Potassium channel RNA editing signal: a 114-nucleotide RNA sequence from Desmophyllum pertusum. From the family's description: This family represents a group of sequences related to the human potassium channel Kv1.1 hairpin element which directs the efficient modification of an adenosine to inosine by an adenosine deaminase acting on RNA (ADAR). On this family, see Bhalla et al., Nat Struct Mol Biol 2004: "Control of human potassium channel inactivation by editing of a small mRNA hairpin". The base pairs follow the family's consensus structure, which is taken from published work.
RNA sequence: GUUGGCUAUGGUGACAUGGCACCCGUAACGACCAUGGGUAAAUUCAUCGGGAGCAUUUGCGCGGUUUGCGGAGUGCUCACCAUAGCACUUCCGGUUCCGGUAAUCGUCAAUAAC
Numbered sequence: 001g002u003u004g005g006c007u008a009u010g011g012u013g014a015c016a017u018g019g020c021a022c023c024c025g026u027a028a029c030g031a032c033c034a035u036g037g038g039u040a041a042a043u044u045c046a047u048c049g050g051g052a053g054c055a056u057u058u059g060c061g062c063g064g065u066u067u068g069c070g071g072a073g074u075g076c077u078c079a080c081c082a083u084a085g086c087a088c089u090u091c092c093g094g095u096u097c098c099g100g101u102a103a104u105c106g107u108c109a110a111u112a113a114c
Stems, first nucleotide, its partner, number of pairs: 001114002004111001008107004014101002018097002021095002037077004050062001